[Rfam]
RNA sequence: GGAUCAAUGAUGAGAACUCAUAUUGUCUUGAAGAGAGAUGAUGACCUAAAAAUCUUGUUCAAUAGGAUUACAUGGAGGCCC
Numbered sequence: 001g002g003a004u005c006a007a008u009g010a011u012g013a014g015a016a017c018u019c020a021u022a023u024u025g026u027c028u029u030g031a032a033g034a035g036a037g038a039u040g041a042u043g044a045c046c047u048a049a050a051a052a053u054c055u056u057g058u059u060c061a062a063u064a065g066g067a068u069u070a071c072a073u074g075g076a077g078g079c080c081c
Base pairs, nucleotide, nucleotide: 001081002080004078005075008072009071